[Rfam]
RNA sequence: GGGUCAAUAAUGAAAACUCAUAUUAACAUGAUUAGAAAUGAAGACUUAAAAUCAUGCUCAAUAGGAUUAUGCUGAGGCCC
Numbered sequence: 001g002g003g004u005c006a007a008u009a010a011u012g013a014a015a016a017c018u019c020a021u022a023u024u025a026a027c028a029u030g031a032u033u034a035g036a037a038a039u040g041a042a043g044a045c046u047u048a049a050a051a052u053c054a055u056g057c058u059c060a061a062u063a064g065g066a067u068u069a070u071g072c073u074g075a076g077g078c079c080c
Stems, first nucleotide, its partner, number of pairs: 001080004005074002008071002